[Rfam]
Nucleotides: 102
Stems, first nucleotide, its partner, number of pairs: 010089006018081002021078004026073007034065001037062004042057003
Number, partner (000 for none) and nucleotide at each position: 001000u002000a003000g004000c005000c006000c007000u008000g009000c010089u011088g012087u013086c014085g015084c016000g017000a018081g019080g020000u021078c022077u023076c024075c025000g026073g027072c028071c029070g030069c031068u032067g033000a034065g035000a036000a037062u038061c039060c040059g041000a042057c043056a044055c045000a046000c047000c048000u049000u050000c051000c052000c053000c054000g055044g056043u057042g058000c059040c060039g061038g062037a063000a064000g065034c066000c067032c068031a069030g070029c071028g072027g073026c074000g075024g076023g077022g078021g079000c080019c081018c082000u083000g084015g085014c086013g087012a088011c089010a090000g091000c092000a093000g094000c095000g096000c097000c098000g099000c100000c101000g102000g